[Rfam]
The family of this 179-nucleotide RNA sequence is "malK-I RNA". The sequence is in the family's curated seed alignment. The family's consensus secondary structure is taken from published work.
RNA sequence: UACCAUGGCGUCGUAUCACUCCACUUAAUGGGCGGCGUACAUGUAAAAAAAGGAGGAUUAACCGUUCGGCUCACGGUGCGGCAGUGUGGAGACCUGUCGUAAUGCAUUUACUCUUUUACCGGGUACUUGUGAGGCAUUCGUUAGCGGAGGCUGGGAUGCUAGGGUCGGGAAAUAUGUCA
Numbered sequence: 001u002a003c004c005a006u007g008g009c010g011u012c013g014u015a016u017c018a019c020u021c022c023a024c025u026u027a028a029u030g031g032g033c034g035g036c037g038u039a040c041a042u043g044u045a046a047a048a049a050a051a052g053g054a055g056g057a058u059u060a061a062c063c064g065u066u067c068g069g070c071u072c073a074c075g076g077u078g079c080g081g082c083a084g085u086g087u088g089g090a091g092a093c094c095u096g097u098c099g100u101a102a103u104g105c106a107u108u109u110a111c112u113c114u115u116u117u118a119c120c121g122g123g124u125a126c127u128u129g130u131g132a133g134g135c136a137u138u139c140g141u142u143a144g145c146g147g148a149g150g151c152u153g154g155g156a157u158g159c160u161a162g163g164g165u166c167g168g169g170a171a172a173u174a175u176g177u178c179a
Base pairs, nucleotide, nucleotide: 008038009037010036011035012034013033014032016031017030018029062076063075064074065073066168067167068166069165070164071163072162077101078100079099080098081097082096083095084094086093087092104130105129106128109125110124111123112122133160134159135158136157137156138155139154143152144151145150
Dot-bracket structure: .......(((((((.(((..........)))))))))).......................[[[[(((((((]]]]((((((((.((....))))))))))..(((..((((.........))))..)))..(((((((...(((....))).))))))).)))))))...........